[Rfam]
RNA sequence: AAUCCUUCAGCCUUUUGGCUUAGAUCAAGUGUAGUAUCUGUUCUUUUCAGUUUGAUAUCUGAAACAUUUCUAUAUGGACCGUCAUUUAUUAAUCUCAUUUUUGUCCCGAGGGGACUGGCCGCUGUGCUUGCACAUGUCGGUUCCCACUGUGUCACUGGUAUUGCACUGCCUCCAGUUGGCGCGACCUUUC
Numbered sequence: 001a002a003u004c005c006u007u008c009a010g011c012c013u014u015u016u017g018g019c020u021u022a023g024a025u026c027a028a029g030u031g032u033a034g035u036a037u038c039u040g041u042u043c044u045u046u047u048c049a050g051u052u053u054g055a056u057a058u059c060u061g062a063a064a065c066a067u068u069u070c071u072a073u074a075u076g077g078a079c080c081g082u083c084a085u086u087u088a089u090u091a092a093u094c095u096c097a098u099u100u101u102u103g104u105c106c107c108g109a110g111g112g113g114a115c116u117g118g119c120c121g122c123u124g125u126g127c128u129u130g131c132a133c134a135u136g137u138c139g140g141u142u143c144c145c146a147c148u149g150u151g152u153c154a155c156u157g158g159u160a161u162u163g164c165a166c167u168g169c170c171u172c173c174a175g176u177u178g179g180c181g182c183g184a185c186c187u188u189u190c
Stems, first nucleotide, its partner, number of pairs: 007024002009020004045064006065081001068078003110145008123134004148183006154176005
RNA: U2 spliceosomal RNA
Organism: Sphaerosporella brunnea